[Rfam]
RNA sequence: CUGCAGCCAAUUGAGCUGAUGGAGUUCCUUUCCUCCUGGGGCCCAGUGUGCAAAAGCUGCAAACAGCAGCUUCCUUGGUAGUGUACGCAGCCUGUUUCUUAUAUGGGUUGCUCUAAGGGACCUUGGAGACAG
Numbered sequence: 001c002u003g004c005a006g007c008c009a010a011u012u013g014a015g016c017u018g019a020u021g022g023a024g025u026u027c028c029u030u031u032c033c034u035c036c037u038g039g040g041g042c043c044c045a046g047u048g049u050g051c052a053a054a055a056g057c058u059g060c061a062a063a064c065a066g067c068a069g070c071u072u073c074c075u076u077g078g079u080a081g082u083g084u085a086c087g088c089a090g091c092c093u094g095u096u097u098c099u100u101a102u103a104u105g106g107g108u109u110g111c112u113c114u115a116a117g118g119g120a121c122c123u124u125g126g127a128g129a130c131a132g
Base pairs, nucleotide, nucleotide: 002052003051004050005049019047020046022044025041026040027039028038077122078121079120088110089109090108091107092106093105
Shown here is a 132-nucleotide sequence, a member of the family "Small nucleolar RNA SNORA70". Gene Ontology terms of the family: nucleolus and RNA processing. Rfam's curators write: snoRNA U70 seems to be exclusive to mammals and is a member of the H/ACA class of snoRNA which contain H (ANANNA) and ACA box motifs. H/ACA box snoRNAs are involved in the conversion of uridines to pseudouridines (5-ribosyluracil) a constituent of structural RNAs (transfer, ribosomal, small nuclear, and small nucleolar). The base pairs follow the family's consensus structure, which was predicted with PFOLD. For this family Rfam cites "Pseudouridine in RNA: what, where, how, and why" (Charette and Gray, IUBMB Life, 2000).